RNA sequence: CCCUAGCCCUGAUAGUAAUGGAAAUCCUUUUGUAAAAAAGUCUAUUUUUUUCUUGCUAUAAAAGAGCGACCAUAGAAGCUCCUUUUAUGGCUUAGAAAAGAAGACUUAUUUACAAAAGAUUGUAAUGAAUAGCAGGAAAUAGC
Numbered sequence: 001c002c003c004u005a006g007c008c009c010u011g012a013u014a015g016u017a018a019u020g021g022a023a024a025u026c027c028u029u030u031u032g033u034a035a036a037a038a039a040g041u042c043u044a045u046u047u048u049u050u051u052c053u054u055g056c057u058a059u060a061a062a063a064g065a066g067c068g069a070c071c072a073u074a075g076a077a078g079c080u081c082c083u084u085u086u087a088u089g090g091c092u093u094a095g096a097a098a099a100g101a102a103g104a105c106u107u108a109u110u111u112a113c114a115a116a117a118g119a120u121u122g123u124a125a126u127g128a129a130u131a132g133c134a135g136g137a138a139a140u141a142g143c
Stems, first nucleotide, its partner, number of pairs: 009135003013131002018126002023121004029116008

A member of the RNA family "Flavo-1 RNA" from Flavobacterium aquatile, 143 nucleotides long. Taxonomically the source falls in Flavobacterium aquatile (Bacteria, Flavobacteriales, Flavobacteriaceae, Flavobacterium). The match comes from Rfam's covariance-model search (67 bits). Rfam classes the family as a small RNA.